Shown here is a 73-nucleotide RNA sequence from Methanoregula boonei, a member of the family "tRNA".
It is annotated as a transfer RNA.
It scores 67 bits against the family's covariance model.
RNA sequence: GCCUCAGUGGCUUAGCUGGCAGAGCGGCUGACUUGUAAUCAGCAGGUCCCGUGUUCAAAUCACGGCUGAGGCU
Numbered sequence: 001g002c003c004u005c006a007g008u009g010g011c012u013u014a015g016c017u018g019g020c021a022g023a024g025c026g027g028c029u030g031a032c033u034u035g036u037a038a039u040c041a042g043c044a045g046g047u048c049c050c051g052u053g054u055u056c057a058a059a060u061c062a063c064g065g066c067u068g069a070g071g072c073u
Stems, first nucleotide, its partner, number of pairs: 001072007010025004027043005049065005